RNA sequence: UGGCACCCAACGUGACGACUCGAGCAUGGGGGAUCUAGUGACGGACUGUUCAAGAGGCGGGCAAAAAUAAAAGUGAAAGAAAGAGGAUGAGAUAGCGUGGGAGCCUGCUAUGCUUUCUAGACCUUGGUAAGUGAACAGAACUUAUGGGACAAGAAAUGAGUCAACAUGAAAUGUUUGUUGAGGGCUUAGGAAAAGCCUUAAAGGCACGAGGAGUAAAGGUUAAAAUUAAGGAAUUGUGUAAGUAUUUUGAUUACAUUAAGCAAGUCUGUCCUU
Numbered sequence: 001u002g003g004c005a006c007c008c009a010a011c012g013u014g015a016c017g018a019c020u021c022g023a024g025c026a027u028g029g030g031g032g033a034u035c036u037a038g039u040g041a042c043g044g045a046c047u048g049u050u051c052a053a054g055a056g057g058c059g060g061g062c063a064a065a066a067a068u069a070a071a072a073g074u075g076a077a078a079g080a081a082a083g084a085g086g087a088u089g090a091g092a093u094a095g096c097g098u099g100g101g102a103g104c105c106u107g108c109u110a111u112g113c114u115u116u117c118u119a120g121a122c123c124u125u126g127g128u129a130a131g132u133g134a135a136c137a138g139a140a141c142u143u144a145u146g147g148g149a150c151a152a153g154a155a156a157u158g159a160g161u162c163a164a165c166a167u168g169a170a171a172u173g174u175u176u177g178u179u180g181a182g183g184g185c186u187u188a189g190g191a192a193a194a195g196c197c198u199u200a201a202a203g204g205c206a207c208g209a210g211g212a213g214u215a216a217a218g219g220u221u222a223a224a225a226u227u228a229a230g231g232a233a234u235u236g237u238g239u240a241a242g243u244a245u246u247u248u249g250a251u252u253a254c255a256u257u258a259a260g261c262a263a264g265u266c267u268g269u270c271c272u273u
Base pairs, nucleotide, nucleotide: 006032007031008030012027013026014025036048037047038046039045084125085124086123091117092116096112097111098110099109100108132151133150136148139145157200158199159198160196161195207249208248209247210246211245213243214242217235218234220232221231258273259272260271262269
Notes:
The family of this 273-nucleotide RNA from Chinchilla lanigera is "Mason-Pfizer monkey virus packaging signal". By type it is a cis-regulatory element. The family's consensus secondary structure was predicted with PFOLD. The match comes from Rfam's covariance-model search (97 bits). From the family's description: This family represents a group of sequences that are related to the Mason-Pfizer monkey virus (MPMV) packaging signal. The packaging signal is located in the 5' UTR and is required for specific RNA encapsidation. The source organism's lineage runs through Eukaryota, Teleostomi, Sarcopterygii, Boreoeutheria and Chinchilla.